RNA sequence: UCUCUUCCUGGUUCUUCCCGAAGUCAGGAAAAGCUGGGUUGAGAGGA
Numbered sequence: 001u002c003u004c005u006u007c008c009u010g011g012u013u014c015u016u017c018c019c020g021a022a023g024u025c026a027g028g029a030a031a032a033g034c035u036g037g038g039u040u041g042a043g044a045g046g047a
Base pairs, nucleotide, nucleotide: 001044002043003042004041007038008037009036010035011034015030016029017028018027020025
A member of the RNA family "mir-320 microRNA precursor family" from Pan troglodytes, 47 nucleotides long.
It is one of the family's seed sequences.